[Rfam]
A member of the RNA family "mir-263 microRNA precursor family" from Nezara viridula, 79 nucleotides long.
Its Rfam clan is "mir-182 clan".
The match comes from Rfam's covariance-model search (60 bits).

RNA sequence: UGGAUGUGGGUCUUGGCACUGGAAGAAUUCACAGAUAUGUUAUUAAUCGUGGUUCUCCUCGUGCCAAAGUCUACGCCUU
Numbered sequence: 001u002g003g004a005u006g007u008g009g010g011u012c013u014u015g016g017c018a019c020u021g022g023a024a025g026a027a028u029u030c031a032c033a034g035a036u037a038u039g040u041u042a043u044u045a046a047u048c049g050u051g052g053u054u055c056u057c058c059u060c061g062u063g064c065c066a067a068a069g070u071c072u073a074c075g076c077c078u079u
Stems, first nucleotide, its partner, number of pairs: 003077001005075006013067006021059002023056001025055003029052004034047001
The organism belongs to Nezara, within Eukaryota. Gene Ontology terms of the family: RISC complex and miRNA-mediated post-transcriptional gene silencing.